[Rfam]
RNA sequence: GGCCGGUGAUGAUACACAUUGACUUUUCUGACACCUCGUCUGAGGGCUGCAGGAGGCCGCAGCCCCUGCUGAUUAGUCACGGCUGAGGUCC
Dot-bracket structure: ((((.........................................(((((........))))).......................)))).